RNA sequence: UAGCCCCAGCGGCCGCAGGACGCGGAGCCAGGAGAGGAGGCGGGAGGCUGGGCAGGAGCUGCUGUCCGCCGCGAGCCAGGACUUGUACA
Numbered sequence: 001u002a003g004c005c006c007c008a009g010c011g012g013c014c015g016c017a018g019g020a021c022g023c024g025g026a027g028c029c030a031g032g033a034g035a036g037g038a039g040g041c042g043g044g045a046g047g048c049u050g051g052g053c054a055g056g057a058g059c060u061g062c063u064g065u066c067c068g069c070c071g072c073g074a075g076c077c078a079g080g081a082c083u084u085g086u087a088c089a
Stems, first nucleotide, its partner, number of pairs: 003048003007044001011029003
This 89-nucleotide RNA sequence from Urocitellus parryii belongs to the Rfam family "GRIK4 3 prime UTR element". It scores 73 bits against the family's covariance model. Rfam classes the family as a non-coding RNA gene.